[Rfam]
RNA sequence: CUUGUAUCCAGAUAUAGAUACGCUUGGUUUGUGGUUCCAAGCUAGUCUAAAUAGUUGCCGAGUUCGCAGCCAUUAAGUGCUCGGAUGAGUGGCGCUGUUAAUGAUGAACGUCCCAUAUGUA
Numbered sequence: 001c002u003u004g005u006a007u008c009c010a011g012a013u014a015u016a017g018a019u020a021c022g023c024u025u026g027g028u029u030u031g032u033g034g035u036u037c038c039a040a041g042c043u044a045g046u047c048u049a050a051a052u053a054g055u056u057g058c059c060g061a062g063u064u065c066g067c068a069g070c071c072a073u074u075a076a077g078u079g080c081u082c083g084g085a086u087g088a089g090u091g092g093c094g095c096u097g098u099u100a101a102u103g104a105u106g107a108a109c110g111u112c113c114c115a116u117a118u119g120u121a
Stems, first nucleotide, its partner, number of pairs: 002017005022042006031116004045105003048101001050099001057093004062086002068081003

Shown here is a 121-nucleotide sequence from Brachionus plicatilis, a member of the family "RAGATH-11 RNA".
It scores 99 bits against the family's covariance model.
The family's consensus secondary structure is taken from published work.